Shown here is a 97-nucleotide sequence from Setaria viridis, a member of the family "Small nucleolar RNA snoR31/Z110/Z27". Rfam describes the family as follows. This family contains several related snoRNAs including R31, Z27 and Z110. Rfam classes the family as a C/D-box small nucleolar RNA. Rfam links the family to the GO terms nucleolus and RNA processing.

RNA sequence: GGAUCUAAAUGAUGCAAAACUUUGAAACAAACUUAGGACACCUUCUGACAUGGUGCUUGUGCUGUGAAUGAGAAGGCAAUUCUUUCCUGAUGGUACU
Numbered sequence: 001g002g003a004u005c006u007a008a009a010u011g012a013u014g015c016a017a018a019a020c021u022u023u024g025a026a027a028c029a030a031a032c033u034u035a036g037g038a039c040a041c042c043u044u045c046u047g048a049c050a051u052g053g054u055g056c057u058u059g060u061g062c063u064g065u066g067a068a069u070g071a072g073a074a075g076g077c078a079a080u081u082c083u084u085u086c087c088u089g090a091u092g093g094u095a096c097u
Stems, first nucleotide, its partner, number of pairs: 001097002005093003046052002